Shown here is a 219-nucleotide RNA sequence from Cottoperca gobio, a member of the family "Small nucleolar RNA SNORA73 family". The family's consensus secondary structure is taken from published work. The literature on the family includes a 2002 paper in J Mol Evol by Cervelli et al., "Comparative Structure Analysis of Vertebrate U17 Small Nucleolar RNA (snoRNA)". The match comes from Rfam's covariance-model search (185 bits). Taxonomically the source falls in Cottoperca (Eukaryota, Vertebrata, Osteoglossocephalai, Notothenioidei). U17 (SNORA73A and SNORA73B) also known as E1 belongs to the H/ACA class of small nucleolar RNAs (snoRNAs). Vertebrate U17 is intron-encoded and ranges in length from 200-230 nucleotides, longer than most snoRNAs.

[Rfam]
RNA sequence: CCGACGUGGACAUCCAGCGAGGUUGCUCUCCUGGCUCUGUCCUGGUGGCGUAUGGGAGCGUAGCUUUGCAGCUGAGACGUACAGUCCCGUUCCACGAUGUCGGAGAUAAAGCUCUGUCCCCGGCCGCUGGUCGCGAGGACGGGCGUUCUGUAUAUUCCUACAUCUUCCCAGAGUCCCUUGGGGCCAUUACUGGGGGGCUAAACCAUGCAGUGUACAGCA
Numbered sequence: 001c002c003g004a005c006g007u008g009g010a011c012a013u014c015c016a017g018c019g020a021g022g023u024u025g026c027u028c029u030c031c032u033g034g035c036u037c038u039g040u041c042c043u044g045g046u047g048g049c050g051u052a053u054g055g056g057a058g059c060g061u062a063g064c065u066u067u068g069c070a071g072c073u074g075a076g077a078c079g080u081a082c083a084g085u086c087c088c089g090u091u092c093c094a095c096g097a098u099g100u101c102g103g104a105g106a107u108a109a110a111g112c113u114c115u116g117u118c119c120c121c122g123g124c125c126g127c128u129g130g131u132c133g134c135g136a137g138g139a140c141g142g143g144c145g146u147u148c149u150g151u152a153u154a155u156u157c158c159u160a161c162a163u164c165u166u167c168c169c170a171g172a173g174u175c176c177c178u179u180g181g182g183g184c185c186a187u188u189a190c191u192g193g194g195g196g197g198c199u200a201a202a203c204c205a206u207g208c209a210g211u212g213u214a215c216a217g218c219a
Base pairs, nucleotide, nucleotide: 001103002102003101004100005099006098007097008042009041010040011039012038014034015033016032019028020027021026045095046094047093048092054088055087056086057085058082060080061079064074148210149209150208151207152206153205164197165196166195167194168193169192173184174183175182176181